[Rfam]
RNA: Small nucleolar RNA SNORD53/SNORD92
Organism: Leptobrachium leishanense
RNA sequence: GUGCCGUGAUGACGUACAGAGAAUGGUUUCGCAAUUAACGGAAUCCCCGUGACGAGCAACUCUCUUGGCUGUCUGAGCGC
Numbered sequence: 001g002u003g004c005c006g007u008g009a010u011g012a013c014g015u016a017c018a019g020a021g022a023a024u025g026g027u028u029u030c031g032c033a034a035u036u037a038a039c040g041g042a043a044u045c046c047c048c049g050u051g052a053c054g055a056g057c058a059a060c061u062c063u064c065u066u067g068g069c070u071g072u073c074u075g076a077g078c079g080c
Stems, first nucleotide, its partner, number of pairs: 001080004